[Rfam]
Nucleotides: 097
Base pairs, nucleotide, nucleotide: 004094006092007091041055042054043053044052065082066081067080068079069078
Number, partner (000 for none) and nucleotide at each position: 001000u002000u003000c004094u005000g006092g007091a008000g009000a010000u011000g012000a013000u014000g015000a016000u017000u018000c019000u020000u021000a022000u023000c024000a025000g026000a027000g028000g029000c030000u031000g032000u033000u034000u035000c036000u037000g038000a039000g040000g041055u042054g043053a044052g045000c046000c047000a048000a049000g050000a051000u052044c053043u054042c055041a056000c057000c058000g059000a060000g061000u062000g063000c064000c065082g066081c067080a068079a069078a070000a071000g072000a073000a074000c075000u076000g077000a078069u079068u080067u081066g082065c083000c084000g085000u086000u087000c088000u089000g090000a091007u092006c093000a094004a095000a096000a097000g
This 97-nucleotide sequence from Digitaria exilis belongs to the Rfam family "Small nucleolar RNA Z119". The family's consensus secondary structure was predicted with PFOLD. It is annotated as a C/D-box small nucleolar RNA. The source organism's lineage runs through Eukaryota, Magnoliopsida, Mesangiospermae, Paniceae and Digitaria. Rfam 15.1 lists 93 matches to the family in 28 species. Its family is annotated with nucleolus and RNA processing in the Gene Ontology. On this family, see Chen et al., Nucleic Acids Res 2003: "The high diversity of snoRNAs in plants: identification and comparative study of 120 snoRNA genes from Oryza sativa".